CRISPR RNA direct repeat element: a 37-nucleotide sequence from Pseudorhodoferax sp. Leaf274. NCBI's taxonomy places the organism under Bacteria, Pseudomonadati, Burkholderiales, Comamonadaceae, Pseudorhodoferax.
[Rfam]
RNA sequence: GCAUCGCCCGUCGGUAAUGGCGGGCGUGGAUUGAAAC
Numbered sequence: 001g002c003a004u005c006g007c008c009c010g011u012c013g014g015u016a017a018u019g020g021c022g023g024g025c026g027u028g029g030a031u032u033g034a035a036a037c
Base pairs, nucleotide, nucleotide: 005026006025007024008023009022010021011020012019013018